[Rfam]
RNA sequence: ACUGCUGCGGGUGACUGGCGAGUCAGUGGAAAAAACCACGAGGGAGCCCACAGCAUAUAUACAAUCCUCAGUCGUUCGCCUGGGCUGGUCAC
Numbered sequence: 001a002c003u004g005c006u007g008c009g010g011g012u013g014a015c016u017g018g019c020g021a022g023u024c025a026g027u028g029g030a031a032a033a034a035a036c037c038a039c040g041a042g043g044g045a046g047c048c049c050a051c052a053g054c055a056u057a058u059a060u061a062c063a064a065u066c067c068u069c070a071g072u073c074g075u076u077c078g079c080c081u082g083g084g085c086u087g088g089u090c091a092c
Base pairs, nucleotide, nucleotide: 003055004054005053006052007051009049010048011047012046015043016042017080018079019078020077021076026039027038028037029036069087070086071085072084073083
RNA: ZMP/ZTP riboswitch aptamer (pfl RNA motif)